This 76-nucleotide RNA sequence from Sapajus apella belongs to the Rfam family "mir-320 microRNA precursor family". A reference for the family is Berezikov et al. (2006), "Many novel mammalian microRNA candidates identified by extensive cloning and RAKE analysis", Genome Res.

[Rfam]
RNA sequence: CAAAGAUUAGGCCUUCUCUUCCCGGUUCUUCCCUGAGUUGGGAAAAGCUGGGUUGAGAGGGUGAAAAAAAAUACAA
Number, nucleotide and partner (000 for none) at each position: 001c000002a000003a000004a000005g000006a000007u000008u000009a000010g000011g000012c000013c000014u059015u058016c057017u056018c055019u000020u000021c052022c051023c050024g049025g048026u000027u000028c000029u044030u043031c042032c041033c040034u000035g000036a000037g000038u000039u000040g033041g032042g031043a030044a029045a000046a000047g000048c025049u024050g023051g022052g021053u000054u000055g018056a017057g016058a015059g014060g000061g000062u000063g000064a000065a000066a000067a000068a000069a000070a000071a000072u000073a000074c000075a000076a000
The source organism's lineage runs through Eukaryota, Opisthokonta, Sarcopterygii, Cebidae and Sapajus. The family has 38 seed sequences and 659 matches in Rfam 15.1.